[Rfam]
RNA: Alphaproteobacterial ar15
RNA sequence: AGUCGACGGGUCGCUCCUCCCACUCUUCACGUCGACUGUUCCCCUCUGGAGGUCAUAACCUUCAGCAUUGGCCGGGCUGAAAAGUCCGGCCUUUUUU
Numbered sequence: 001a002g003u004c005g006a007c008g009g010g011u012c013g014c015u016c017c018u019c020c021c022a023c024u025c026u027u028c029a030c031g032u033c034g035a036c037u038g039u040u041c042c043c044c045u046c047u048g049g050a051g052g053u054c055a056u057a058a059c060c061u062u063c064a065g066c067a068u069u070g071g072c073c074g075g076g077c078u079g080a081a082a083a084g085u086c087c088g089g090c091c092u093u094u095u096u097u
Stems, first nucleotide, its partner, number of pairs: 001037005007031002047064007070091009